[Rfam]
Nucleotides: 091
Base pairs, nucleotide, nucleotide: 001091002090003089004088005087009081010080011079012078015046016045017044018043023040025038047072048071049070050069051068052067053066054065055064056063057062
Number, partner (000 for none) and nucleotide at each position: 001091c002090u003089g004088a005087c006000u007000a008000u009081u010080g011079c012078g013000c014000a015046a016045g017044g018043g019000u020000g021000a022000a023040u024000a025038u026000a027000g028000g029000u030000c031000u032000u033000g034000a035000u036000g037000a038025a039000a040023a041000a042000g043018c044017c045016c046015u047072c048071c049070u050069c051068g052067u053066u054065a055064a056063u057062g058000g059000a060000a061000a062057u063056g064055u065054u066053a067052a068051c069050g070049a071048g072047g073000c074000a075000g076000a077000a078012c079011g080010c081009a082000u083000a084000a085000c086000g087005g088004u089003c090002a091001g
The record is a 91-nucleotide RNA sequence from archaeon SCG-AAA382B04, which matches "L4-Archaeoglobi ribosomal protein leades" in Rfam. The match comes from Rfam's covariance-model search (38 bits). The base pairs follow the family's consensus structure, which is taken from published work. The literature on the family includes a 2020 paper in BMC Microbiol by Eckert and Weinberg, "Discovery of 20 novel ribosomal leader candidates in bacteria and archaea". Rfam classes the family as a cis-regulatory leader.